[Rfam]
RNA sequence: AAGAGUGCAGUGAUGAAGUAAUUUUUUGUGGACUAGAGUUUUUGAUUUGGGUUUUUCCCAGUAGUUGAAGACUAACCCUUGGCUGUUUGGAUAUUUUU
Numbered sequence: 001a002a003g004a005g006u007g008c009a010g011u012g013a014u015g016a017a018g019u020a021a022u023u024u025u026u027u028g029u030g031g032a033c034u035a036g037a038g039u040u041u042u043u044g045a046u047u048u049g050g051g052u053u054u055u056u057c058c059c060a061g062u063a064g065u066u067g068a069a070g071a072c073u074a075a076c077c078c079u080u081g082g083c084u085g086u087u088u089g090g091a092u093a094u095u096u097u098u
Stems, first nucleotide, its partner, number of pairs: 001098007039070004046063001047061005